[Rfam]
RNA sequence: UUGGUUUAAAUCAAUUCUGGAUCUACACUUUGAAAAUAGAACUCACACAAAGUGAUGGAACAUACAUAUUGAUUUCAUCCAA
Numbered sequence: 001u002u003g004g005u006u007u008a009a010a011u012c013a014a015u016u017c018u019g020g021a022u023c024u025a026c027a028c029u030u031u032g033a034a035a036a037u038a039g040a041a042c043u044c045a046c047a048c049a050a051a052g053u054g055a056u057g058g059a060a061c062a063u064a065c066a067u068a069u070u071g072a073u074u075u076c077a078u079c080c081a082a
Stems, first nucleotide, its partner, number of pairs: 001082004006077001008075008018064002023058003026054007
Dot-bracket structure: ((((.(.((((((((..((...((((((((((...............))))))).)))....))...)))))))).).))))